[Rfam]
Nucleotides: 173
Base pairs, nucleotide, nucleotide: 001016002015003014004013005012006011031170037165042159043158044157045156046155048152049151050150051149063148064147065146066145067144068143075140076139077138079136080135081134082133083132084131085130087115088114089113090112093108094107095106096105
Number, partner (000 for none) and nucleotide at each position: 001016g002015u003014a004013a005012c006011c007000g008000u009000g010000a011006g012005g013004u014003u015002a016001c017000a018000c019000c020000u021000g022000a023000a024000g025000a026000a027000a028000g029000c030000g031170a032000g033000a034000c035000u036000a037165c038000a039000a040000a041000a042159c043158u044157c045156g046155g047000u048152a049151c050150c051149g052000a053000c054000g055000a056000a057000c058000a059000g060000g061000a062000a063148c064147c065146g066145u067144a068143u069000a070000c071000g072000g073000a074000g075140g076139c077138a078000u079136a080135u081134u082133u083132a084131c085130u086000u087115g088114g089113g090112u091000a092000a093108g094107c095106a096105a097000g098000c099000a100000c101000a102000u103000c104000a105096u106095u107094g108093u109000a110000a111000c112090g113089c114088c115087c116000c117000a118000a119000g120000a121000u122000u123000a124000c125000a126000a127000a128000a129000g130085g131084g132083u133082a134081a135080g136079u137000a138077u139076g140075u141000a142000g143068a144067u145066a146065c147064g148063g149051c150050g151049g152048u153000u154000a155046u156045u157044g158043a159042g160000c161000g162000a163000a164000a165037g166000a167000a168000g169000a170031u171000g172000c173000a
The record is a 173-nucleotide RNA from Zobellia galactanivorans, which matches "Group II catalytic intron D1-D4-3" in Rfam. It scores 121 bits against the family's covariance model. The pairing is the family consensus, mapped onto this sequence.